[Rfam]
RNA: MIR2670 microRNA precursor family
Organism: Medicago truncatula
RNA sequence: UCGGGGUAAAAUAGCGAGUAACCGACUUGAGGAAGUGAUCAACCCUUGUGAUAUGUUUAAAUCUGCUUUUUUUUUUUUUACUCCAUAAACUUUUUAUCGAGUGUAAAAAGAUUCUUAUUGGGAUAUAAAAAAAACCAGAUUUAAAUUUAACCCAAGGGUUGGUGAUGUAUUUUCCCCAAGAAGGCUUCUCACUAUUUUACCCUAU
Numbered sequence: 001u002c003g004g005g006g007u008a009a010a011a012u013a014g015c016g017a018g019u020a021a022c023c024g025a026c027u028u029g030a031g032g033a034a035g036u037g038a039u040c041a042a043c044c045c046u047u048g049u050g051a052u053a054u055g056u057u058u059a060a061a062u063c064u065g066c067u068u069u070u071u072u073u074u075u076u077u078u079u080a081c082u083c084c085a086u087a088a089a090c091u092u093u094u095u096a097u098c099g100a101g102u103g104u105a106a107a108a109a110g111a112u113u114c115u116u117a118u119u120g121g122g123a124u125a126u127a128a129a130a131a132a133a134a135c136c137a138g139a140u141u142u143a144a145a146u147u148u149a150a151c152c153c154a155a156g157g158g159u160u161g162g163u164g165a166u167g168u169a170u171u172u173u174c175c176c177c178a179a180g181a182a183g184g185c186u187u188c189u190c191a192c193u194a195u196u197u198u199a200c201c202c203u204a205u
Stems, first nucleotide, its partner, number of pairs: 003203012016190003020186001022184002026180004031175005038166004042159003046155003050151001052149002055146001057144009072134007079125002082122004090110008